[Rfam]
RNA sequence: CCCCGCGACGAGCCCCUCGCACAAACCGGACCUGAGCGUUUUGUUCGUUCGGCUCGCGUGAGG
Dot-bracket structure: ((..(((.((((((...((.((((((...........)).)))).))...)))))))))..))
RNA: mir-375 microRNA precursor family